RNA sequence: GCGAUUAUUACCCCCUUCAUCGGCAAGGUGGGCUAGCGGCCGUCCAGGCUGCCAAAAACCCGCCUCGGAGGCGGGGUUG
Numbered sequence: 001g002c003g004a005u006u007a008u009u010a011c012c013c014c015c016u017u018c019a020u021c022g023g024c025a026a027g028g029u030g031g032g033c034u035a036g037c038g039g040c041c042g043u044c045c046a047g048g049c050u051g052c053c054a055a056a057a058a059c060c061c062g063c064c065u066c067g068g069a070g071g072c073g074g075g076g077u078u079g
Base pairs, nucleotide, nucleotide: 011031012030014028015027016026017025056078057077059075060074061073062072063071064070